A member of the RNA family "Small nucleolar RNA SNORA9" from Varanus komodoensis, 138 nucleotides long. By type it is an H/ACA-box small nucleolar RNA. The family is grouped with related families in Rfam's "SNORA9 clan". Rfam's curators write: ACA9 is a member of the H/ACA class of snoRNA that guide the sites of modification of uridines to pseudouridines.
RNA sequence: UCGCAAGCCUUCCAGCAUGGCUGGGUCUCUUCCGUGACCCUGUUCAUUCCUGUAGAGUUUGCAAGAGCAGCUGUGGGAUGGUUUGAGGCCUCGCUCUGCUCCACCUUCAGAGGGAGGUUAUAGAAAUCUCAGACAGUC
Numbered sequence: 001u002c003g004c005a006a007g008c009c010u011u012c013c014a015g016c017a018u019g020g021c022u023g024g025g026u027c028u029c030u031u032c033c034g035u036g037a038c039c040c041u042g043u044u045c046a047u048u049c050c051u052g053u054a055g056a057g058u059u060u061g062c063a064a065g066a067g068c069a070g071c072u073g074u075g076g077g078a079u080g081g082u083u084u085g086a087g088g089c090c091u092c093g094c095u096c097u098g099c100u101c102c103a104c105c106u107u108c109a110g111a112g113g114g115a116g117g118u119u120a121u122a123g124a125a126a127u128c129u130c131a132g133a134c135a136g137u138c
Base pairs, nucleotide, nucleotide: 003062004061005060006059007058008057018046019045020044023040024039025038026037027036074131075130076129077128078127089117090116091115092114094112096110097109098108